[Rfam]
RNA: MIR821 microRNA precursor family
RNA sequence: GAUUUCAGCUGAAAAGUCAUCAACAAUAAAGUUAUAGAACUGAUCAGGAUCUACAACUUUUAUUUUGGUCAUUUCUUCAUCCGAGAAAGUGGCAGUAACAUUGUUCACAAAAUGUACAUAUCUCUCUUAUAAUUUAUGAAACCAUAUAAGAGAUAUGUAAAAUUUGUGAAUAAUGUUACUAUCACUUUCUUGAAUGAAGAAAUGGUCAAAAUAAAAGUUGUAGAUCUUGAUGAGUUCUACAACUUUCAUGUUCAUGACUUUUUUAGAUGAAAUC
Number, nucleotide and partner (000 for none) at each position: 001g000002a000003u000004u000005u000006c000007a000008g000009c000010u000011g000012a000013a261014a260015a259016g258017u257018c256019a255020u254021c000022a252023a251024c000025a249026a000027u000028a000029a245030a244031g243032u242033u241034a000035u239036a238037g237038a236039a235040c234041u233042g000043a231044u230045c229046a228047g227048g226049a225050u224051c223052u222053a000054c220055a219056a218057c217058u216059u215060u214061u213062a212063u211064u210065u209066u208067g000068g206069u205070c204071a203072u202073u201074u200075c000076u198077u197078c196079a195080u194081c000082c192083g191084a190085g189086a188087a187088a186089g185090u184091g183092g000093c000094a180095g179096u178097a177098a176099c000100a174101u173102u172103g171104u170105u169106c168107a167108c166109a165110a164111a163112a000113u161114g000115u000116a158117c157118a156119u155120a154121u153122c000123u000124c000125u000126c000127u000128u000129a000130u144131a000132a000133u141134u140135u139136a000137u000138g000139a135140a134141a133142c000143c000144a130145u000146a000147u000148a000149a000150g000151a000152g000153a121154u120155a119156u118157g117158u116159a000160a000161a113162a000163u111164u110165u109166g108167u107168g106169a105170a104171u103172a102173a101174u100175g000176u098177u097178a096179c095180u094181a000182u000183c091184a090185c089186u088187u087188u086189c085190u084191u083192g082193a000194a080195u079196g078197a077198a076199g000200a074201a073202a072203u071204g070205g069206u068207c000208a066209a065210a064211a063212u062213a061214a060215a059216a058217g057218u056219u055220g054221u000222a052223g051224a050225u049226c048227u047228u046229g045230a044231u043232g000233a041234g040235u039236u038237c037238u036239a035240c000241a033242a032243c031244u030245u029246u000247c000248a000249u025250g000251u023252u022253c000254a020255u019256g018257a017258c016259u015260u014261u013262u000263u000264u000265a000266g000267a000268u000269g000270a000271a000272a000273u000274c000